[Rfam]
tRNA: a 73-nucleotide sequence from Dictyostelium discoideum. About the family: Transfer RNA (tRNA) molecules are approximately 80 nucleotides in length. Lineage of the source: Eukaryota > Amoebozoa > Evosea > Dictyosteliaceae > Dictyostelium. The family's RNA type in Rfam is transfer RNA. Rfam links the family to the GO term triplet codon-amino acid adaptor activity.
RNA sequence: GCCCGUUUAGCAAAGUUGGAAUUGCGGCAGCCUUCUAAGCUGCAGGUCGUGGGAUCGAGACCCACAAUGGGUG
Numbered sequence: 001g002c003c004c005g006u007u008u009a010g011c012a013a014a015g016u017u018g019g020a021a022u023u024g025c026g027g028c029a030g031c032c033u034u035c036u037a038a039g040c041u042g043c044a045g046g047u048c049g050u051g052g053g054a055u056c057g058a059g060a061c062c063c064a065c066a067a068u069g070g071g072u073g
Stems, first nucleotide, its partner, number of pairs: 001072007010025004027043005049065005